[Rfam]
RNA sequence: CCGGCGGGCAACCGUCCGCUCGGAUACUGACUCCGGUACCUGAUACGGCCGGGGCAG
Number, nucleotide and partner (000 for none) at each position: 001c023002c022003g021004g019005c018006g017007g016008g015009c000010a000011a000012c000013c000014g000015u008016c007017c006018g005019c004020u000021c003022g002023g001024a000025u000026a000027c057028u056029g055030a000031c054032u053033c052034c051035g050036g049037u048038a000039c000040c000041u000042g000043a000044u000045a000046c000047g000048g037049c036050c035051g034052g033053g032054g031055c029056a028057g027
Rfam assigns this 57-nucleotide RNA from Streptomyces caatingaensis to the family "L17-Actino-Proteobacteria ribosomal protein leader". For this family Rfam cites "Discovery of 20 novel ribosomal leader candidates in bacteria and archaea" (Eckert and Weinberg, BMC Microbiol, 2020). Lineage of the source: Bacteria > Bacillati > Actinomycetes > Streptomycetaceae > Streptomyces. It is one of the family's seed sequences.